A member of the RNA family "MIR408 microRNA precursor family" from Triticum aestivum, 197 nucleotides long. Gene Ontology terms of the family: RISC complex and miRNA-mediated post-transcriptional gene silencing.
RNA sequence: GAGUGGAGAGGGGAGAGGAGACAGGGAUGGAGCAGAGCAAAGGAUGGGGCAAGCAACAAACUUCACUUCCUUCCACUCAUCACCUCCUGAUUGUCAGAGGAGCAAGAGAGUUGUGAGAGACCAGCUGAGAGCUUCUGUUGCUGUUGUUGCUCCCUCCCUGCACUGCCUCUUCCCUGGCUCCCCUCCCAAAUCUCUCC
Numbered sequence: 001g002a003g004u005g006g007a008g009a010g011g012g013g014a015g016a017g018g019a020g021a022c023a024g025g026g027a028u029g030g031a032g033c034a035g036a037g038c039a040a041a042g043g044a045u046g047g048g049g050c051a052a053g054c055a056a057c058a059a060a061c062u063u064c065a066c067u068u069c070c071u072u073c074c075a076c077u078c079a080u081c082a083c084c085u086c087c088u089g090a091u092u093g094u095c096a097g098a099g100g101a102g103c104a105a106g107a108g109a110g111u112u113g114u115g116a117g118a119g120a121c122c123a124g125c126u127g128a129g130a131g132c133u134u135c136u137g138u139u140g141c142u143g144u145u146g147u148u149g150c151u152c153c154c155u156c157c158c159u160g161c162a163c164u165g166c167c168u169c170u171u172c173c174c175u176g177g178c179u180c181c182c183c184u185c186c187c188a189a190a191u192c193u194c195u196c197c
Stems, first nucleotide, its partner, number of pairs: 018180003022176006030168001032166004037161003042157002047152006